[Rfam]
RNA sequence: UGGCGCCCGGAACAAGGGACCUGAAUAUGAGGGACUUCAGUGAGGAAUGCCAACAUCAACUCGAGAUCCAUGGAAGAAGUGAAAAUUUAAAAGAGGACUGUAGUUUCCCGCUCGGUCUUCUGAAAUAAGGUAUGUUGUCACAGUUAUGGGACAAGCAAAGAGUAAAAAAGAGCUAAUUGCUGUAGUAAAAGAUAUUUUAAAAGCACAAGGAAUUGGGAUUGCAUCAAGUUCUUUAAGCAAAUUUUUUGAUCUUGUUAAUAAAACAAAUCCUU
Numbered sequence: 001u002g003g004c005g006c007c008c009g010g011a012a013c014a015a016g017g018g019a020c021c022u023g024a025a026u027a028u029g030a031g032g033g034a035c036u037u038c039a040g041u042g043a044g045g046a047a048u049g050c051c052a053a054c055a056u057c058a059a060c061u062c063g064a065g066a067u068c069c070a071u072g073g074a075a076g077a078a079g080u081g082a083a084a085a086u087u088u089a090a091a092a093g094a095g096g097a098c099u100g101u102a103g104u105u106u107c108c109c110g111c112u113c114g115g116u117c118u119u120c121u122g123a124a125a126u127a128a129g130g131u132a133u134g135u136u137g138u139c140a141c142a143g144u145u146a147u148g149g150g151a152c153a154a155g156c157a158a159a160g161a162g163u164a165a166a167a168a169a170g171a172g173c174u175a176a177u178u179g180c181u182g183u184a185g186u187a188a189a190a191g192a193u194a195u196u197u198u199a200a201a202a203g204c205a206c207a208a209g210g211a212a213u214u215g216g217g218a219u220u221g222c223a224u225c226a227a228g229u230u231c232u233u234u235a236a237g238c239a240a241a242u243u244u245u246u247u248g249a250u251c252u253u254g255u256u257a258a259u260a261a262a263a264c265a266a267a268u269c270c271u272u
Base pairs, nucleotide, nucleotide: 006033007032008031014028016026038049039048041046085126086125087124088122089121095118096117099114100113102112103111133153134152135151139150141148142147160198161197162195163194164193206248207247208246209245210244211243212242213241216234217233218232221229257272258271261268
Dot-bracket structure: .....(((.....(.(.........).)..)))....((.(....).))...................................(((((.....((..((.((.......))))..))..)).)))......(((...(.((....)).))))......(((((............................))).)).......((((((((..(((..(.......)..)))......))))))))........((..(......)..))
A member of the RNA family "Mason-Pfizer monkey virus packaging signal" from Jaculus jaculus, 272 nucleotides long. The base pairs follow the family's consensus structure, which was predicted with PFOLD. Taxonomically the source falls in Jaculus (Eukaryota, Deuterostomia, Gnathostomata, Dipodidae).